[Rfam]
RNA sequence: CUCGCCACUGCACCUGACCAGUCCUGUUGGCUGAUGCAAUUCAGUGGUGCACUGAUAGCAAACCCCAGUUUAUAAAACAGGGUUGUCCUUCAAAGGGAUGACUCUAUGCCAAACACAUGGGAACAGCA
Numbered sequence: 001c002u003c004g005c006c007a008c009u010g011c012a013c014c015u016g017a018c019c020a021g022u023c024c025u026g027u028u029g030g031c032u033g034a035u036g037c038a039a040u041u042c043a044g045u046g047g048u049g050c051a052c053u054g055a056u057a058g059c060a061a062a063c064c065c066c067a068g069u070u071u072a073u074a075a076a077a078c079a080g081g082g083u084u085g086u087c088c089u090u091c092a093a094a095g096g097g098a099u100g101a102c103u104c105u106a107u108g109c110c111a112a113a114c115a116c117a118u119g120g121g122a123a124c125a126g127c128a
Base pairs, nucleotide, nucleotide: 005047006046007045008044009043010042017035019033020032021031022029063121064120065119067118068116069115071113079105080104081103082102083101086098087097088096
A member of the RNA family "Small nucleolar RNA SNORA65" from Tupaia belangeri, 128 nucleotides long. The family's consensus secondary structure was predicted with RNAalifold. Taxonomically the source falls in Tupaia belangeri (Eukaryota, Vertebrata, Dipnotetrapodomorpha, Theria). About the family: U65 belongs to the H/ACA class of snoRNAs which are thought to guide the sites of modification of uridines to pseudouridines. A reference for the family is Huttenhofer et al. (2001), "RNomics: an experimental approach that identifies 201 candidates for novel, small, non-messenger RNAs in mouse", EMBO J.